[Rfam]
RNA sequence: GUGCGGGAGCGAUAGAAACGGCAUCCUUUUUGCGAAACUGUAAAUGCAAAAACCUCUGUUUUUUGAAGCUAUUAAUUUGAAAGGAAAAAACUUUAAGGUGCUUACAGGGCGCCUCGCAAAAAGAUAUAGUGGAUAGCGCGGUUUUUA
Numbered sequence: 001g002u003g004c005g006g007g008a009g010c011g012a013u014a015g016a017a018a019c020g021g022c023a024u025c026c027u028u029u030u031u032g033c034g035a036a037a038c039u040g041u042a043a044a045u046g047c048a049a050a051a052a053c054c055u056c057u058g059u060u061u062u063u064u065g066a067a068g069c070u071a072u073u074a075a076u077u078u079g080a081a082a083g084g085a086a087a088a089a090a091c092u093u094u095a096a097g098g099u100g101c102u103u104a105c106a107g108g109g110c111g112c113c114u115c116g117c118a119a120a121a122a123g124a125u126a127u128a129g130u131g132g133a134u135a136g137c138g139c140g141g142u143u144u145u146u147a
Stems, first nucleotide, its partner, number of pairs: 009139003013135002018130002023125003029120007
RNA: Flavo-1 RNA
Organism: Hyunsoonleella jejuensis